[Rfam]
MIR7504 microRNA precursor family: a 124-nucleotide RNA sequence from Gossypium lobatum. The organism belongs to Gossypium, within Eukaryota. Its family is annotated with RISC complex and miRNA-mediated post-transcriptional gene silencing in the Gene Ontology.

RNA sequence: AAUAGGAGAAUAACAAAUCAGAUUUUUUCUCCUGAUUUUCAGUUUUUUCCUCUUAAAAAAAUUUAAAUCCAACUAAAAAUACUAGAAGUCAAAAGGAAAAAAUUUGAUUUGCCAUUUUUCUAUU
Number, nucleotide and partner (000 for none) at each position: 001a124002a123003u122004a121005g120006g119007a118008g117009a116010a115011u114012a000013a000014c111015a110016a109017a108018u107019c106020a105021g104022a103023u101024u100025u099026u098027u097028u000029c095030u094031c000032c000033u091034g090035a089036u088037u087038u086039u085040c000041a083042g082043u000044u000045u079046u078047u077048u076049c000050c000051u000052c000053u000054u000055a000056a000057a000058a000059a000060a000061a000062u000063u000064u000065a000066a000067a000068u000069c000070c000071a000072a000073c000074u000075a000076a048077a047078a046079a045080u000081a000082c042083u041084a000085g039086a038087a037088g036089u035090c034091a033092a000093a000094a030095g029096g000097a027098a026099a025100a024101a023102a000103u022104u021105u020106g019107a018108u017109u016110u015111g014112c000113c000114a011115u010116u009117u008118u007119u006120c005121u004122a003123u002124u001